[Rfam]
RNA sequence: UGGCACCCAAUGUGGGGCCUGGAUACUGGGGACAACAAAGGAAAAAGGGGUGCGCACCCCCUCAAAUAAUUUGGAGACGUCGCGGGAGCCUGCUGCGACCGAGCCUAAGGUAAGUUGGUCGUGUAAAUCAUGGGGCAAGAAUUAAGUCAGCAUCAGAUUUAUGUGAUACAGUUAAGAGAAGCUCUACAGGCAAGAGGAGUAAAGGUUAAAACUGAGGAUUUAUUUCAUUUCUUUGAUUUUGUAAAGGAUAUUUGUCCAU
Numbered sequence: 001u002g003g004c005a006c007c008c009a010a011u012g013u014g015g016g017g018c019c020u021g022g023a024u025a026c027u028g029g030g031g032a033c034a035a036c037a038a039a040g041g042a043a044a045a046a047g048g049g050g051u052g053c054g055c056a057c058c059c060c061c062u063c064a065a066a067u068a069a070u071u072u073g074g075a076g077a078c079g080u081c082g083c084g085g086g087a088g089c090c091u092g093c094u095g096c097g098a099c100c101g102a103g104c105c106u107a108a109g110g111u112a113a114g115u116u117g118g119u120c121g122u123g124u125a126a127a128u129c130a131u132g133g134g135g136c137a138a139g140a141a142u143u144a145a146g147u148c149a150g151c152a153u154c155a156g157a158u159u160u161a162u163g164u165g166a167u168a169c170a171g172u173u174a175a176g177a178g179a180a181g182c183u184c185u186a187c188a189g190g191c192a193a194g195a196g197g198a199g200u201a202a203a204g205g206u207u208a209a210a211a212c213u214g215a216g217g218a219u220u221u222a223u224u225u226c227a228u229u230u231c232u233u234u235g236a237u238u239u240u241g242u243a244a245a246g247g248a249u250a251u252u253u254g255u256c257c258a259u
Base pairs, nucleotide, nucleotide: 006031007030008029012026013025014024070109071108072107078101079100081097082096083095084094085093115138116137117136120134122132123131143186144185146182147181194234195233196232197231198230199229203221204220205219206218207217244259246257247256248255249254
The family of this 259-nucleotide RNA from Nannospalax galili is "Mason-Pfizer monkey virus packaging signal". Lineage of the source: Eukaryota > Sarcopterygii > Boreoeutheria > Spalacidae > Nannospalax. A search with the family's covariance model found it, with a score of 150 bits. On this family, see Mustafa et al., Virus Res 2004: "Mutational analysis of the predicted secondary RNA structure of the Mason-Pfizer monkey virus packaging signal".